This 52-nucleotide RNA from Jhaorihella thermophila belongs to the Rfam family "SAM/SAH riboswitch aptamer". A reference for the family is Weickhmann et al. (2019), "The structure of the SAM/SAH-binding riboswitch", Nucleic Acids Res. Gene Ontology terms of the family: S-adenosylmethionine metabolic process and regulation of gene expression. NCBI's taxonomy places the organism under Bacteria, Pseudomonadota, Alphaproteobacteria, Rhodobacterales, Jhaorihella.

[Rfam]
RNA sequence: GACCCGUCACAACGGCUUCCUGGCGUGGCGGGGGACAAAACUCAAUGGAGCA
Numbered sequence: 001g002a003c004c005c006g007u008c009a010c011a012a013c014g015g016c017u018u019c020c021u022g023g024c025g026u027g028g029c030g031g032g033g034g035a036c037a038a039a040a041c042u043c044a045a046u047g048g049a050g051c052a
Stems, first nucleotide, its partner, number of pairs: 005032001006029005013022002015051003019048002
Notes:
It scores 54 bits against the family's covariance model.